[Rfam]
RNA sequence: UACAUAGAACGGCUAAUAAGGGCGGUCGGCUAAUCUCCCGGAAGGGAGGUGAGGCCAUGGAGGUUAGAGACGCGAUAACAUUGAUGAUUGCGUUCGGUGUGUUGAUUAUUUCACUCAUCGGGCUAGUCGUUAAUAUUGUCGACGCGAUGACCAAAAAGAAAUAGACCGCCCUGGACAAGGAUAACGGUCUACUCUAAGUGACUCUUUCCGAAGCCGACCGCCUUUAAAGCGGCUGUGUACCCGGGGGGGCUGUUGACGCAGCUCCC
Numbered sequence: 001u002a003c004a005u006a007g008a009a010c011g012g013c014u015a016a017u018a019a020g021g022g023c024g025g026u027c028g029g030c031u032a033a034u035c036u037c038c039c040g041g042a043a044g045g046g047a048g049g050u051g052a053g054g055c056c057a058u059g060g061a062g063g064u065u066a067g068a069g070a071c072g073c074g075a076u077a078a079c080a081u082u083g084a085u086g087a088u089u090g091c092g093u094u095c096g097g098u099g100u101g102u103u104g105a106u107u108a109u110u111u112c113a114c115u116c117a118u119c120g121g122g123c124u125a126g127u128c129g130u131u132a133a134u135a136u137u138g139u140c141g142a143c144g145c146g147a148u149g150a151c152c153a154a155a156a157a158g159a160a161a162u163a164g165a166c167c168g169c170c171c172u173g174g175a176c177a178a179g180g181a182u183a184a185c186g187g188u189c190u191a192c193u194c195u196a197a198g199u200g201a202c203u204c205u206u207u208c209c210g211a212a213g214c215c216g217a218c219c220g221c222c223u224u225u226a227a228a229g230c231g232g233c234u235g236u237g238u239a240c241c242c243g244g245g246g247g248g249g250c251u252g253u254u255g256a257c258g259c260a261g262c263u264c265c266c
Stems, first nucleotide, its partner, number of pairs: 001239005007233001010216005017174001019172004024166001026164001031052001033050001035048005059127001062124004073086002096119004186195002218232004245266009
This 266-nucleotide sequence from Paenibacillus sp. 598K belongs to the Rfam family "BsrG". The base pairs follow the family's consensus structure, which was predicted with WAR. NCBI's taxonomy places the organism under Bacteria, Bacillati, Bacillota, Bacilli, Paenibacillus. Rfam's curators write: bsrE, bsrG and bsrH pair through intermolecular interactions with antisense sRNAs. On this family, see Irnov et al., Nucleic Acids Res 2010: "Identification of regulatory RNAs in Bacillus subtilis".